[Rfam]
RNA sequence: ACCAUUCUUAUAAUAUUCACUCAUAUAAUAGCGGAAAUAAGGUCCGCGAGUUUCUACCAGUUUGCCGUAAACGAACUGACUAUGAGAAGCAACGAAAUGUUG
Numbered sequence: 001a002c003c004a005u006u007c008u009u010a011u012a013a014u015a016u017u018c019a020c021u022c023a024u025a026u027a028a029u030a031g032c033g034g035a036a037a038u039a040a041g042g043u044c045c046g047c048g049a050g051u052u053u054c055u056a057c058c059a060g061u062u063u064g065c066c067g068u069a070a071a072c073g074a075a076c077u078g079a080c081u082a083u084g085a086g087a088a089g090c091a092a093c094g095a096a097a098u099g100u101u102g
Stems, first nucleotide, its partner, number of pairs: 020086006029049001031047005058078007
RNA: Purine riboswitch aptamer
Organism: Planococcus massiliensis